About this RNA:
Rfam assigns this 69-nucleotide sequence from Eumeta japonica to the family "mir-29 microRNA precursor family". Its family is annotated with gene silencing by miRNA and RISC complex in the Gene Ontology. From the family's description: This family represents the microRNA (miRNA) precursors mir-29. Lineage of the source: Eukaryota > Panarthropoda > Eumetabola > Panorpida > Eumeta. It scores 49 bits against the family's covariance model. For this family Rfam cites "microRNAs: tiny regulators with great potential" (Ambros, Cell, 2001). The family has 168 seed sequences and 3,328 matches in Rfam 15.1.
RNA sequence: UGAUAACUGCAUUCGAGUGUGUGAGUAGAUUUGUUAAAAUUGUCUAGCACCAUUCGAAUUCAGUGCUCG
Numbered sequence: 001u002g003a004u005a006a007c008u009g010c011a012u013u014c015g016a017g018u019g020u021g022u023g024a025g026u027a028g029a030u031u032u033g034u035u036a037a038a039a040u041u042g043u044c045u046a047g048c049a050c051c052a053u054u055c056g057a058a059u060u061c062a063g064u065g066c067u068c069g
Stems, first nucleotide, its partner, number of pairs: 001069003005064001007063003011059005017053003021050003026046004